[Rfam]
RNA: RNase MRP
RNA sequence: GUGCUUGCUGAAGGCCUGUUGCCUAGGCUACAAACAGGGAACAUGUCUCCCACCCUGAGCCUAGGGGAAAGUCCGCAGACCUCUGACAGAAAGCGCCAUGCACGCAUGUGCGUCUGGCUGCUGUCGCAGCUCCCCUUCUCCCCACCAAGAAGUACCUCUACUUCCAUGGAAGCACUGAGCAGAAAGAGCCUGUGAAUCCACCCUACAUCAAGAAAAUAGUUAUGCAGGCAGUGCACCUCAUGCACAUUAACUAAAUGAGGCUCAUUCUCAAGCUCCAGCC
Numbered sequence: 001g002u003g004c005u006u007g008c009u010g011a012a013g014g015c016c017u018g019u020u021g022c023c024u025a026g027g028c029u030a031c032a033a034a035c036a037g038g039g040a041a042c043a044u045g046u047c048u049c050c051c052a053c054c055c056u057g058a059g060c061c062u063a064g065g066g067g068a069a070a071g072u073c074c075g076c077a078g079a080c081c082u083c084u085g086a087c088a089g090a091a092a093g094c095g096c097c098a099u100g101c102a103c104g105c106a107u108g109u110g111c112g113u114c115u116g117g118c119u120g121c122u123g124u125c126g127c128a129g130c131u132c133c134c135c136u137u138c139u140c141c142c143c144a145c146c147a148a149g150a151a152g153u154a155c156c157u158c159u160a161c162u163u164c165c166a167u168g169g170a171a172g173c174a175c176u177g178a179g180c181a182g183a184a185a186g187a188g189c190c191u192g193u194g195a196a197u198c199c200a201c202c203c204u205a206c207a208u209c210a211a212g213a214a215a216a217u218a219g220u221u222a223u224g225c226a227g228g229c230a231g232u233g234c235a236c237c238u239c240a241u242g243c244a245c246a247u248u249a250a251c252u253a254a255a256u257g258a259g260g261c262u263c264a265u266u267c268u269c270a271a272g273c274u275c276c277a278g279c280c
Base pairs, nucleotide, nucleotide: 003279004278005277007273008272009270010269011268014229015228016227017226018225019224022065023064024063025062026061027060028059037051038050039049040048070262071261073260074259076257085097087095098113099112100111101110102109103108115200116199117198124195125194126193127192128191129190130188131187132186142182145179152175153174155172231247232246233245236242